[Rfam]
RNA sequence: ACAAUGAUACUUCCGUCCAGCCACAGACUCACGCAAUGGGGGCGGUCACGAGAGAACCUCGUGAUGGUGGGAUUCCAAUGA
Numbered sequence: 001a002c003a004a005u006g007a008u009a010c011u012u013c014c015g016u017c018c019a020g021c022c023a024c025a026g027a028c029u030c031a032c033g034c035a036a037u038g039g040g041g042g043c044g045g046u047c048a049c050g051a052g053a054g055a056a057c058c059u060c061g062u063g064a065u066g067g068u069g070g071g072a073u074u075c076c077a078a079u080g081a
Base pairs, nucleotide, nucleotide: 012078013045014044015043016042017041018040046064047063048062050060051059052058065077066076067075
Record summary: A member of the RNA family "pemK RNA", 81 nucleotides long. It is one of the family's seed sequences. Rfam classes the family as a cis-regulatory element.